[Rfam]
RNA sequence: GGCAGUAGCGAAUACACAAGUGAGAACCUUGUGGACUGACGUGGAGAAGGGUUCCAUGUGAACAGCAGUUGAACAUGGGUCAGUCGGUCCUAAGGGAUGGGAGAAAUCCGUUCCGAAGCGGGACAUUUACACUGCGGAGGUGUCCCGUGGCAACCGAAAGGGAAUCGGGUUAAUAUUCCCGAACCUGGACGCAGAGAUCGGCCCUUCGGGGACCAGUGCGGCAACGCAAACGAACUCGGAGACGUCGGCGGAAGCCCCGGGAAGAGUUGUCUUUUCUUUGUAAGGACUCGGCUCCCUGGAAUCGGCUCGCCCGGAGAUAGGGAUGCUGUAUCCGUAAAGCACCGCGGCUCUUGCGGUGUCCGGUGCGCUUCCGUCGGCCCUUGAAAAUCCGAGGGAGAAAGUGUGAUUUUUGUGCCAGACCGUACCCAUAUCCGCAGCAGGUCUCCAAGGUGAACAGCCUCUAGUCGA
Numbered sequence: 001g002g003c004a005g006u007a008g009c010g011a012a013u014a015c016a017c018a019a020g021u022g023a024g025a026a027c028c029u030u031g032u033g034g035a036c037u038g039a040c041g042u043g044g045a046g047a048a049g050g051g052u053u054c055c056a057u058g059u060g061a062a063c064a065g066c067a068g069u070u071g072a073a074c075a076u077g078g079g080u081c082a083g084u085c086g087g088u089c090c091u092a093a094g095g096g097a098u099g100g101g102a103g104a105a106a107u108c109c110g111u112u113c114c115g116a117a118g119c120g121g122g123a124c125a126u127u128u129a130c131a132c133u134g135c136g137g138a139g140g141u142g143u144c145c146c147g148u149g150g151c152a153a154c155c156g157a158a159a160g161g162g163a164a165u166c167g168g169g170u171u172a173a174u175a176u177u178c179c180c181g182a183a184c185c186u187g188g189a190c191g192c193a194g195a196g197a198u199c200g201g202c203c204c205u206u207c208g209g210g211g212a213c214c215a216g217u218g219c220g221g222c223a224a225c226g227c228a229a230a231c232g233a234a235c236u237c238g239g240a241g242a243c244g245u246c247g248g249c250g251g252a253a254g255c256c257c258c259g260g261g262a263a264g265a266g267u268u269g270u271c272u273u274u275u276c277u278u279u280g281u282a283a284g285g286a287c288u289c290g291g292c293u294c295c296c297u298g299g300a301a302u303c304g305g306c307u308c309g310c311c312c313g314g315a316g317a318u319a320g321g322g323a324u325g326c327u328g329u330a331u332c333c334g335u336a337a338a339g340c341a342c343c344g345c346g347g348c349u350c351u352u353g354c355g356g357u358g359u360c361c362g363g364u365g366c367g368c369u370u371c372c373g374u375c376g377g378c379c380c381u382u383g384a385a386a387a388u389c390c391g392a393g394g395g396a397g398a399a400a401g402u403g404u405g406a407u408u409u410u411u412g413u414g415c416c417a418g419a420c421c422g423u424a425c426c427c428a429u430a431u432c433c434g435c436a437g438c439a440g441g442u443c444u445c446c447a448a449g450g451u452g453a454a455c456a457g458c459c460u461c462u463a464g465u466c467g468a
Stems, first nucleotide, its partner, number of pairs: 015033006034466004043446004049426002054078006063071002085422003089161002094155002096112003100109003119147010165182005185418004207412005213405001217228004235393006244378004249373007257363003261279005284333003293323006302314004340358007432441002448460004
A member of the RNA family "Eukaryotic large subunit ribosomal RNA", 468 nucleotides of a longer RNA.
The sequence is in the family's curated seed alignment.